[Rfam]
RNA sequence: GCCGAGCUCAGUAACGUGAGCUUGUAACCUGAGUUGGGGGCAUUGGGUUGAUUGGACAUUGGGCCUGUCCCGCUACUUGGUCCAAAGAGUAUGCAUUGAUCUGGCUCCGCCCGUUCCAAGCAAGGAGUGGACCAUUGUGGCCCACUCCAAAGUCUGGGCUUCAAUGCUCCUAAAGUGGAGGGCACCGCGCUAGGCUGGCUUCACAGAGCAGCGAUAACCUCCCGCUCCUUGCAGUGGAAGGAUAACGGGCCGGCGCAUCCUUGGGCCACACGGGUAGAUGGGCUGGUCUCAAUCGGACAAUCAAUCCU
Numbered sequence: 001g002c003c004g005a006g007c008u009c010a011g012u013a014a015c016g017u018g019a020g021c022u023u024g025u026a027a028c029c030u031g032a033g034u035u036g037g038g039g040g041c042a043u044u045g046g047g048u049u050g051a052u053u054g055g056a057c058a059u060u061g062g063g064c065c066u067g068u069c070c071c072g073c074u075a076c077u078u079g080g081u082c083c084a085a086a087g088a089g090u091a092u093g094c095a096u097u098g099a100u101c102u103g104g105c106u107c108c109g110c111c112c113g114u115u116c117c118a119a120g121c122a123a124g125g126a127g128u129g130g131a132c133c134a135u136u137g138u139g140g141c142c143c144a145c146u147c148c149a150a151a152g153u154c155u156g157g158g159c160u161u162c163a164a165u166g167c168u169c170c171u172a173a174a175g176u177g178g179a180g181g182g183c184a185c186c187g188c189g190c191u192a193g194g195c196u197g198g199c200u201u202c203a204c205a206g207a208g209c210a211g212c213g214a215u216a217a218c219c220u221c222c223c224g225c226u227c228c229u230u231g232c233a234g235u236g237g238a239a240g241g242a243u244a245a246c247g248g249g250c251c252g253g254c255g256c257a258u259c260c261u262u263g264g265g266c267c268a269c270a271c272g273g274g275u276a277g278a279u280g281g282g283c284u285g286g287u288c289u290c291a292a293u294c295g296g297a298c299a300a301u302c303a304a305u306c307c308u
Stems, first nucleotide, its partner, number of pairs: 001041003004023007028038004045307010057295001059292003062288004067283001069281002073277006079267006086261002089259001091258003101253005107248003111241002114239005120232009130169002133166005139160006147152001170175001177222005188213003195206003
The record is a 308-nucleotide RNA sequence from Dorcoceras hygrometricum, which matches "Plant signal recognition particle RNA" in Rfam.
Rfam 15.1 lists 4,988 matches to the family in 266 species.
Clan: SRP clan.
Pairs were carried over by alignment from the consensus structure, which is taken from published work.
By type it is a non-coding RNA gene.
It scores 231 bits against the family's covariance model.